[Rfam]
RNA sequence: GUAAAGAGACCUACUGCAAAGCAGGUUUUUACUAUACACGUUCGCCUCACGCUCGCAUCGACCAAAGUUGAGCGUGAGGCUUUUU
Numbered sequence: 001g002u003a004a005a006g007a008g009a010c011c012u013a014c015u016g017c018a019a020a021g022c023a024g025g026u027u028u029u030u031a032c033u034a035u036a037c038a039c040g041u042u043c044g045c046c047u048c049a050c051g052c053u054c055g056c057a058u059c060g061a062c063c064a065a066a067g068u069u070g071a072g073c074g075u076g077a078g079g080c081u082u083u084u085u
Base pairs, nucleotide, nucleotide: 005030006029007028008027009026010025011024012023016022017021044080045079046078047077048076049075050074051073052072053071054070057068058067
RNA: S. pyogenes small RNA 779816
Organism: Streptococcus phage Javan180